The family of this 96-nucleotide RNA sequence from bacterium YEK0313 is "Glycine riboswitch aptamer". Rfam's curators write: This family represents the bacterial glycine riboswitch. The pairing is the family consensus, mapped onto this sequence.
Nucleotides: 096
Stems, first nucleotide, its partner, number of pairs: 008089006020041003043076003046072002050070003056064002
Number, partner (000 for none) and nucleotide at each position: 001000g002000u003000c004000g005000c006000c007000a008089a009088c010087a011086c012085g013084g014000a015000a016000g017000a018000g019000a020041u021040c022039g023000a024000c025000c026000c027000g028000c029000c030000u031000c032000g033000g034000c035000g036000g037000g038000a039022c040021g041020g042000c043076g044075c045074c046072g047071a048000c049000g050070g051069a052068g053000c054000a055000a056064c057063c058000g059000c060000c061000c062000c063057g064056g065000a066000a067000a068052c069051u070050c071047u072046c073000a074045g075044g076043c077000a078000a079000a080000a081000a082000g083000a084013c085012c086011g087010u088009g089008u090000c091000c092000g093000a094000a095000g096000u